RNA sequence: UGAACGCGAUGACGCGGGAGGUUGCUGACACACCAGGCUCCGAUGCCAUGGCCUGGGGUCGGGUUUUUCCGCUGAGAAUUGUCUGUUUAUCAAAAUAGGCGACAA
Numbered sequence: 001u002g003a004a005c006g007c008g009a010u011g012a013c014g015c016g017g018g019a020g021g022u023u024g025c026u027g028a029c030a031c032a033c034c035a036g037g038c039u040c041c042g043a044u045g046c047c048a049u050g051g052c053c054u055g056g057g058g059u060c061g062g063g064u065u066u067u068u069c070c071g072c073u074g075a076g077a078a079u080u081g082u083c084u085g086u087u088u089a090u091c092a093a094a095a096u097a098g099g100c101g102a103c104a105a
Stems, first nucleotide, its partner, number of pairs: 014072003018069004025062005080104004085100004
Dot-bracket structure: .............(((.((((...(((((............................)))))...))))))).......((((.((((........)))))))).
The record is a 105-nucleotide RNA sequence from Aneurinibacillus danicus, which matches "S10-Clostridia ribosomal protein leader" in Rfam. By type it is a cis-regulatory leader. For this family Rfam cites "Discovery of 20 novel ribosomal leader candidates in bacteria and archaea" (Eckert and Weinberg, BMC Microbiol, 2020). Lineage of the source: Bacteria > Bacillati > Bacillota > Paenibacillaceae > Aneurinibacillus.